[Rfam]
RNA sequence: GGAUGAAAUGAUGAAUUUCAUGAUGUAUUGAUUGCUGAAAUGAUGGCAACUUAUCAUGUAUUAGCUCUAGCUGAUCAUUC
Numbered sequence: 001g002g003a004u005g006a007a008a009u010g011a012u013g014a015a016u017u018u019c020a021u022g023a024u025g026u027a028u029u030g031a032u033u034g035c036u037g038a039a040a041u042g043a044u045g046g047c048a049a050c051u052u053a054u055c056a057u058g059u060a061u062u063a064g065c066u067c068u069a070g071c072u073g074a075u076c077a078u079u080c
Stems, first nucleotide, its partner, number of pairs: 002079004030050001033048004
RNA: Small nucleolar RNA Z102/R77
Organism: Olea europaea